[Rfam]
RNA sequence: GGAUGUGAGGGCAAUCUGGCUGCAACAUCUUUCACCCCAUUGCUUGCAGUGUUUAUUUGGCUGAUCUGGCUGGCUAGGCAGAUGUCCCCUUCCUCCCUCACCACUCCAUGUGUGUCCCUACCAAAGCUGUGCACUCCAUCAAAGAGGAUGACCAUCCCCAAUAGAGGAGGAUUGGUCUUCAGUCAAGGGUAUACGGGUAGCUGUGCCCCACUUCUAGAACCUCCAAAUAAGCUCUCAAGGUCCAUUUGUAGGAGAAUGUAAGGUAGUCAAGCUUCCAAGACUCCAGACACAUCCUAAUGAGGUGCUGCAUGUGGCAGCUUGCCUUUCUUA
Number, nucleotide and partner (000 for none) at each position: 001g107002g106003a105004u000005g101006u100007g099008a098009g097010g096011g095012c000013a000014a091015u000016c000017u000018g089019g088020c000021u000022g000023c000024a000025a085026c084027a083028u082029c081030u080031u000032u078033c077034a000035c073036c072037c069038c068039a067040u000041u000042g066043c000044u064045u063046g061047c060048a000049g000050u000051g000052u000053u000054u000055a000056u000057u000058u000059g000060g047061c046062u000063g045064a044065u000066c042067u039068g038069g037070c000071u000072g036073g035074c000075u000076a000077g033078g032079c000080a030081g029082a028083u027084g026085u025086c000087c000088c019089c018090u000091u014092c000093c000094u000095c011096c010097c009098u008099c007100a006101c005102c000103a000104c000105u003106c002107c001108a000109u000110g000111u000112g000113u000114g000115u170116c169117c167118c166119u165120a000121c000122c000123a000124a135125a000126g134127c000128u000129g000130u000131g000132c000133a000134c126135u124136c000137c000138a000139u161140c000141a000142a000143a000144g000145a000146g157147g156148a155149u000150g000151a000152c000153c000154a000155u148156c147157c146158c000159c000160a000161a139162u000163a000164g000165a119166g118167g117168a000169g116170g115171a000172u000173u000174g000175g000176u000177c000178u000179u000180c000181a000182g000183u000184c000185a000186a000187g000188g000189g000190u000191a000192u000193a000194c000195g000196g000197g000198u000199a000200g272201c271202u270203g000204u000205g000206c266207c000208c000209c263210a000211c000212u260213u000214c258215u000216a000217g000218a000219a000220c000221c254222u253223c252224c251225a000226a000227a249228u248229a247230a246231g245232c000233u000234c000235u000236c000237a000238a000239g000240g000241u000242c000243c000244a000245u231246u230247u229248g228249u227250a000251g224252g223253a222254g221255a000256a000257u000258g214259u000260a212261a000262g000263g209264u000265a000266g206267u000268c000269a000270a202271g201272c200273u000274u000275c000276c000277a000278a000279g000280a000281c000282u000283c000284c000285a000286g000287a000288c000289a000290c000291a000292u000293c000294c000295u330296a329297a328298u000299g325300a324301g323302g322303u321304g318305c317306u316307g315308c314309a000310u000311g000312u000313g000314g308315c307316a306317g305318c304319u000320u000321g303322c302323c301324u300325u299326u000327c000328u297329u296330a295
Rfam assigns this 330-nucleotide sequence from Cebus imitator to the family "7SK RNA".
The family's RNA type in Rfam is non-coding RNA gene.
The base pairs follow the family's consensus structure, which is taken from published work.
NCBI's taxonomy places the organism under Eukaryota, Metazoa, Eumetazoa, Eutheria, Cebus.
From the family's description: 7SK was discovered as an abundant small nuclear RNA in the mid-70s but a possible function has only recently been suggested. Two independent studies have found that 7SK RNA binds the CDK9/cyclin T complex (known as elongation factor P-TEFb). P-TEFb activates transcription by phosphorylating the C-terminal domain of RNA polymerase II. This process is negatively regulated by the 7SK RNP. The secondary structure of 7SK RNA shown here was proposed by Wasserman and Steitz on the basis of chemical modification and enzymatic cleavage experiments.